[Rfam]
This 386-nucleotide part of an RNA from Campylobacter sp. MIT 12-5580 belongs to the Rfam family "Bacterial large subunit ribosomal RNA".
RNA sequence: GAUAAAAGGGGUGAGAAUCCCCUUCGCCGUAAACCCAAGGUUUCCUACGCGAUGCUCGUCAUCGUAGGGUUAGUCGGGUCCUAAGUCGAGUCCGAAAGGGGUAGACGAUGGCAAAUUGGUUAAUAUUCCAAUACCAACAUUAAUGUGCGAUGGAAGGACGCUUAGGGCUAAGCAAGCUAGCGGAUGGAAGUGCUAGUCUAAGGUCGUAGGUGCUUAUACAGGAAAAUCCGUAUAAGAAUACACCGAGAACUGAAAGGCUUCUCAAAGUCUUCGGAUAGCGAGGAGAAUUGCUGAUGCCGUCGAGCCAAGAAAAGUUUCUAAGUUUAGUUAAUGUUGCCCGUACCGUAAACCGACACAGGUGGGUGGGAUGAGUAUUCUAAGGCGCG
Dot-bracket structure: .....((((((.......))))))((((....((((..((...((((((...((.....)).))))))......((((.((...(((.(.(((....))).).)))...))...(((((........)))))..((((((((((..((...((((....((((..(((..(((((((((((..........))))))((..(((....(((.(((((((.((.....))))))))).....)))....)))...)).((((((................))))))..)))))...)))...)))).........))))...))...))))))))))))))..)).....((......)).)))).(((.......)))..))))..
Pairs were carried over by alignment from the consensus structure, which is taken from published work. A search with the family's covariance model found it, with a score of 2849 bits. Taxonomically the source falls in Campylobacter (Bacteria, Pseudomonadati, Campylobacterota, Epsilonproteobacteria).